RNA: RybB RNA
Organism: Providencia heimbachae
RNA sequence: ACUGCUUUUCUUUGAUGUCCCCAUGUUGAGGAGCCCGAUAGCCAACUCUAUGUUUUUAAUGCUAUCGGGUUUUUUAUU
Numbered sequence: 001a002c003u004g005c006u007u008u009u010c011u012u013u014g015a016u017g018u019c020c021c022c023a024u025g026u027u028g029a030g031g032a033g034c035c036c037g038a039u040a041g042c043c044a045a046c047u048c049u050a051u052g053u054u055u056u057u058a059a060u061g062c063u064a065u066c067g068g069g070u071u072u073u074u075u076a077u078u
Stems, first nucleotide, its partner, number of pairs: 032071011